RNA sequence: ACGCCGGGCCGUGACUGGCGCGCUGGGAUGGGAUCGACCAUCGGGGAGCGGCCCGACCACGAGUGCCGUGCGCCUGGGCCGUCCAC
Numbered sequence: 001a002c003g004c005c006g007g008g009c010c011g012u013g014a015c016u017g018g019c020g021c022g023c024u025g026g027g028a029u030g031g032g033a034u035c036g037a038c039c040a041u042c043g044g045g046g047a048g049c050g051g052c053c054c055g056a057c058c059a060c061g062a063g064u065g066c067c068g069u070g071c072g073c074c075u076g077g078g079c080c081g082u083c084c085a086c
Stems, first nucleotide, its partner, number of pairs: 003057001005055008015045002017074005028041004065079003
Dot-bracket structure: ..(.((((((((..(([[[[[......((((......))))..))..)))))))).).......(((..]]]]]..))).......
ZMP/ZTP riboswitch aptamer (pfl RNA motif): an 86-nucleotide RNA from Pseudonocardia sp. CNS-004. The base pairs follow the family's consensus structure, which is taken from published work. The source organism's lineage runs through Bacteria, Actinomycetota, Actinomycetes, Pseudonocardiales and Pseudonocardia.